[Rfam]
RNA sequence: CUGCAACCCAGUACAAGUAAUCGAGAACAGGCUGACCACAAUACACAGAGCCUAUCCUGGAUUACUUGAACCAGGUAACAG
Numbered sequence: 001c002u003g004c005a006a007c008c009c010a011g012u013a014c015a016a017g018u019a020a021u022c023g024a025g026a027a028c029a030g031g032c033u034g035a036c037c038a039c040a041a042u043a044c045a046c047a048g049a050g051c052c053u054a055u056c057c058u059g060g061a062u063u064a065c066u067u068g069a070a071c072c073a074g075g076u077a078a079c080a081g
Base pairs, nucleotide, nucleotide: 002080003079007075008074011071012070014068015067016066017065018064019063020062021061022060024058025057027055029053030052031051032050033049

Shown here is an 81-nucleotide RNA sequence from Silurus meridionalis, a member of the family "mir-26 microRNA precursor family". Gene Ontology terms of the family: RISC complex and miRNA-mediated post-transcriptional gene silencing. A search with the family's covariance model found it, with a score of 61 bits.